The family of this 151-nucleotide RNA sequence from Desulfatibacillum alkenivorans is "FMN riboswitch aptamer (RFN element)". The RFN element is a highly conserved domain that is found frequently in the 5'-untranslated regions of prokaryotic mRNAs that encode for flavin mononucleotide (FMN) biosynthesis and transport proteins. Taxonomically the source falls in Desulfatibacillum alkenivorans (Bacteria, Thermodesulfobacteriota, Desulfobacteria, Desulfatibacillaceae). The base pairs follow the family's consensus structure, which is taken from published work.
[Rfam]
RNA sequence: ACUUAUUCUCAGGGCGGGGUGGAAGUCCCCACCGGCGGUAUUCCAAUAUAAGUUGGAGAGCCCGCGAGCGCUCCCGAGGGGUUCGGGAGGUCAAGCAGAUCCGGUGAAAGGCCGGAGCCGACGGUAACAGUCCGGAUGGAAGAGGAUAAGG
Numbered sequence: 001a002c003u004u005a006u007u008c009u010c011a012g013g014g015c016g017g018g019g020u021g022g023a024a025g026u027c028c029c030c031a032c033c034g035g036c037g038g039u040a041u042u043c044c045a046a047u048a049u050a051a052g053u054u055g056g057a058g059a060g061c062c063c064g065c066g067a068g069c070g071c072u073c074c075c076g077a078g079g080g081g082u083u084c085g086g087g088a089g090g091u092c093a094a095g096c097a098g099a100u101c102c103g104g105u106g107a108a109a110g111g112c113c114g115g116a117g118c119c120g121a122c123g124g125u126a127a128c129a130g131u132c133c134g135g136a137u138g139g140a141a142g143a144g145g146a147u148a149a150g151g
Base pairs, nucleotide, nucleotide: 003149004148005147006146007145008144009143010142017029018028019027031131032130033120034119035065036064037063038062060118061117068096069095100116101115102114103113104112122134123133124132